[Rfam]
RNA sequence: GUAUAUGUGCAGUCUGUAAAGCAGUGGGACUAAAACACUGCUACUGUUAACACAGUUUAAUGUG
Numbered sequence: 001g002u003a004u005a006u007g008u009g010c011a012g013u014c015u016g017u018a019a020a021g022c023a024g025u026g027g028g029a030c031u032a033a034a035a036c037a038c039u040g041c042u043a044c045u046g047u048u049a050a051c052a053c054a055g056u057u058u059a060a061u062g063u064g
Stems, first nucleotide, its partner, number of pairs: 002064004012056002015054003022046006
RNA: Small nucleolar RNA Z39